[Rfam]
RNA sequence: AUCGGCCUUGCUGAUGAGCGCUGGAACCUUUCUGCCGCUCGCAAUGGCCGCAUCGCCCGAUGCCUUUGACCACGGAUGUACUGGCACGGGUGAAAAGGGCGAUGAUGAGGAAGGUCGGUGCGUUUUCGCCCCGGCCUUUUUUAUU
Number, nucleotide and partner (000 for none) at each position: 001a000002u000003c050004g049005g048006c047007c000008u044009u043010g000011c000012u000013g000014a000015u000016g040017a039018g038019c037020g036021c000022u000023g000024g000025a000026a000027c000028c000029u000030u000031u000032c000033u000034g000035c000036c020037g019038c018039u017040c016041g000042c000043a009044a008045u000046g000047g006048c005049c004050g003051c000052a103053u102054c101055g100056c099057c098058c097059g000060a000061u092062g091063c090064c089065u000066u000067u086068g085069a000070c084071c083072a082073c000074g000075g000076a000077u000078g000079u000080a000081c000082u072083g071084g070085c068086a067087c000088g000089g064090g063091u062092g061093a000094a000095a000096a000097g058098g057099g056100c055101g054102a053103u052104g000105a144106u143107g142108a141109g140110g139111a138112a137113g136114g135115u134116c133117g132118g131119u000120g129121c128122g127123u000124u000125u000126u000127c122128g121129c120130c000131c118132c117133g116134g115135c114136c113137u112138u111139u110140u109141u108142u107143a106144u105145u000

The record is a 145-nucleotide RNA from Shinella fusca, which matches "Alphaproteobacterial sRNA ar35" in Rfam. A reference for the family is del Val et al. (2012), "A survey of sRNA families in alpha-proteobacteria", RNA Biol.